[Rfam]
RNA: TPP riboswitch aptamer (THI element)
RNA sequence: GUGGCUCACCCGGGGAGUCUCGACAAGAGGCUGAGAUACUGAUGGCCGGGGCCGUAGGGCUUCCGUGCAGCGCAGUGACCCGAAGAACCUGAUCCAGUUCACACUGGCGUAGGGAUGGUGCCCCGGCUUCUCG
Numbered sequence: 001g002u003g004g005c006u007c008a009c010c011c012g013g014g015g016a017g018u019c020u021c022g023a024c025a026a027g028a029g030g031c032u033g034a035g036a037u038a039c040u041g042a043u044g045g046c047c048g049g050g051g052c053c054g055u056a057g058g059g060c061u062u063c064c065g066u067g068c069a070g071c072g073c074a075g076u077g078a079c080c081c082g083a084a085g086a087a088c089c090u091g092a093u094c095c096a097g098u099u100c101a102c103a104c105u106g107g108c109g110u111a112g113g114g115a116u117g118g119u120g121c122c123c124c125g126g127c128u129u130c131u132c133g
Stems, first nucleotide, its partner, number of pairs: 007120004011082004017031005038076004088113004094107004
Dot-bracket structure: ......((((((((..(((((.....)))))......((((...............................))))..)))).....((((..((((......))))..))))...)))).............